Description: Shown here is a 117-nucleotide RNA from Brevibacterium sp. CS2, a member of the family "TPP riboswitch aptamer (THI element)". Gene Ontology term of the family: thiamine pyrophosphate binding.
RNA sequence: GGUCGUACCGAGGGGUGUCCCGUCAAGGGGCUGAGAUACCACUGGACGUUGUCAGCGUGGUGACCCUAGAACCUGAUCCGGAUCAUGCCGGCGAAGGGACUGGUCUAGCAGGGCUUC
Numbered sequence: 001g002g003u004c005g006u007a008c009c010g011a012g013g014g015g016u017g018u019c020c021c022g023u024c025a026a027g028g029g030g031c032u033g034a035g036a037u038a039c040c041a042c043u044g045g046a047c048g049u050u051g052u053c054a055g056c057g058u059g060g061u062g063a064c065c066c067u068a069g070a071a072c073c074u075g076a077u078c079c080g081g082a083u084c085a086u087g088c089c090g091g092c093g094a095a096g097g098g099a100c101u102g103g104u105c106u107a108g109c110a111g112g113g114c115u116u117c
Stems, first nucleotide, its partner, number of pairs: 007104004011067004017031005038061005072097003078091004
A search with the family's covariance model found it, with a score of 62 bits.